The family of this 130-nucleotide RNA from Pelosinus sp. UFO1 is "Ribosomal protein L20 leader".

[Rfam]
RNA sequence: UGAGUUAAGCAGAAGCCAUCCGCUUCUCACCUUACAACGCAUAGGCAGUUAGUGAGGUUAUGACAGCAUAUUUGUUUUAUUAUGCUUUUGUUGCGGGUGGUAUUUAUACCAUCCGUUUUAUUUAUAUGUA
Number, nucleotide and partner (000 for none) at each position: 001u000002g000003a000004g000005u000006u000007a000008a000009g000010c000011a027012g026013a025014a024015g023016c022017c000018a000019u000020c000021c000022g016023c015024u014025u013026c012027u011028c000029a058030c057031c056032u000033u000034a000035c000036a050037a049038c048039g046040c045041a000042u000043a000044g000045g040046c039047a000048g038049u037050u036051a000052g000053u000054g000055a000056g031057g030058u029059u000060a000061u000062g000063a000064c000065a000066g000067c000068a000069u000070a000071u000072u000073u000074g000075u000076u000077u000078u000079a000080u000081u000082a000083u000084g000085c000086u000087u000088u000089u000090g000091u000092u000093g116094c115095g114096g113097g112098u111099g110100g109101u108102a000103u000104u000105u000106a000107u000108a101109c100110c099111a098112u097113c096114c095115g094116u093117u000118u000119u000120a000121u000122u000123u000124a000125u000126a000127u000128g000129u000130a000
The base pairs follow the family's consensus structure, which was predicted with CMfinder. The literature on the family includes a 1994 paper in Prog Nucleic Acid Res Mol Biol by Zengel and Lindahl, "Diverse mechanisms for regulating ribosomal protein synthesis in Escherichia coli". Gene Ontology term of the family: regulation of gene expression.